[Rfam]
RNA sequence: CCCGGUGCACGUGAUGACCACACUUUUUUCCCCAUCAGAUCGACCGUGUUGAUCUCGCUGCCAAGCCAGGCUGUGUCUGAUGCACCGGU
Numbered sequence: 001c002c003c004g005g006u007g008c009a010c011g012u013g014a015u016g017a018c019c020a021c022a023c024u025u026u027u028u029u030c031c032c033c034a035u036c037a038g039a040u041c042g043a044c045c046g047u048g049u050u051g052a053u054c055u056c057g058c059u060g061c062c063a064a065g066c067c068a069g070g071c072u073g074u075g076u077c078u079g080a081u082g083c084a085c086c087g088g089u
Base pairs, nucleotide, nucleotide: 002088003087004086005085006084007083008082009081
The record is an 89-nucleotide RNA from Sphenodon punctatus, which matches "Small nucleolar SNORD12/SNORD106" in Rfam.